[Rfam]
RNA: c-di-GMP-I riboswitch aptamer
Organism: Noviherbaspirillum cavernae
RNA sequence: CAGAUGCAAGGGCAAACCCGCCGCGAGGCGGGGACGCAAAGCCACCGGACUGCAGGGCGCACGCGAUGAAACGAUGAGGCGCGCGCUGCCAGUCAGCGGAGCCGCCAUC
Numbered sequence: 001c002a003g004a005u006g007c008a009a010g011g012g013c014a015a016a017c018c019c020g021c022c023g024c025g026a027g028g029c030g031g032g033g034a035c036g037c038a039a040a041g042c043c044a045c046c047g048g049a050c051u052g053c054a055g056g057g058c059g060c061a062c063g064c065g066a067u068g069a070a071a072c073g074a075u076g077a078g079g080c081g082c083g084c085g086c087u088g089c090c091a092g093u094c095a096g097c098g099g100a101g102c103c104g105c106c107a108u109c
Base pairs, nucleotide, nucleotide: 012037013036017032018031019030020029021028022027041102042101045099046098047097048094049093050092051091052090